RNA sequence: CCCUCCUACAAAGGCGUGUCUUUGGUUCCCAGUCUUUGGAGGAAAAGAAAUGUGGAUUUGGAGAAAUGUGGAUUUGGAGAAGUGUGGGGCCAGCUUGCUCCUCCAGGACUCCAAGCAAUCAUUCCACAUAG
Numbered sequence: 001c002c003c004u005c006c007u008a009c010a011a012a013g014g015c016g017u018g019u020c021u022u023u024g025g026u027u028c029c030c031a032g033u034c035u036u037u038g039g040a041g042g043a044a045a046a047g048a049a050a051u052g053u054g055g056a057u058u059u060g061g062a063g064a065a066a067u068g069u070g071g072a073u074u075u076g077g078a079g080a081a082g083u084g085u086g087g088g089g090c091c092a093g094c095u096u097g098c099u100c101c102u103c104c105a106g107g108a109c110u111c112c113a114a115g116c117a118a119u120c121a122u123u124c125c126a127c128a129u130a131g
Stems, first nucleotide, its partner, number of pairs: 004056003017042001019040003024030002070124003074121001092110002094107004

The record is a 131-nucleotide RNA sequence from Spermophilus dauricus, which matches "Small nucleolar RNA SNORA38" in Rfam.
Rfam links the family to the GO terms Cajal body, nucleolus and RNA processing.
Rfam 15.1 lists 628 matches to the family in 149 species.
ACA38 is a member of the H/ACA class of snoRNA that guide the sites of modification of uridines to pseudouridines.
Rfam classes the family as an H/ACA-box small nucleolar RNA.
Pairs were carried over by alignment from the consensus structure, which was predicted with RNAfold.